RNA sequence: UUCCUCUCUACUCCUUGUCACUUGUCCGUCUUGUCUGUUAAGUAGUACUGGACGGAGAACUGAUAAGGGAUUGUGAGGAA
Numbered sequence: 001u002u003c004c005u006c007u008c009u010a011c012u013c014c015u016u017g018u019c020a021c022u023u024g025u026c027c028g029u030c031u032u033g034u035c036u037g038u039u040a041a042g043u044a045g046u047a048c049u050g051g052a053c054g055g056a057g058a059a060c061u062g063a064u065a066a067g068g069g070a071u072u073g074u075g076a077g078g079a080a
Base pairs, nucleotide, nucleotide: 012069013068014067015066016065017064018063019062020061022059023058025056026055027054030051031050
mir-184 microRNA precursor family: an 80-nucleotide sequence from Dreissena polymorpha. Rfam links the family to the GO terms gene silencing by miRNA and RISC complex. The match comes from Rfam's covariance-model search (62 bits). The literature on the family includes a 2005 paper in Genes Dev by Chen et al., "The developmental miRNA profiles of zebrafish as determined by small RNA cloning". Rfam 15.1 lists 948 matches to the family in 823 species.